[Rfam]
RNA: chrB-b RNA
RNA sequence: CGGGGAAGCAGGCUCCCCGCAUAUUAAAGACCGCGUUUCACGACGACAGCGUCCAAGCCCUGC
Numbered sequence: 001c002g003g004g005g006a007a008g009c010a011g012g013c014u015c016c017c018c019g020c021a022u023a024u025u026a027a028a029g030a031c032c033g034c035g036u037u038u039c040a041c042g043a044c045g046a047c048a049g050c051g052u053c054c055a056a057g058c059c060c061u062g063c
Stems, first nucleotide, its partner, number of pairs: 001019006008063005042053004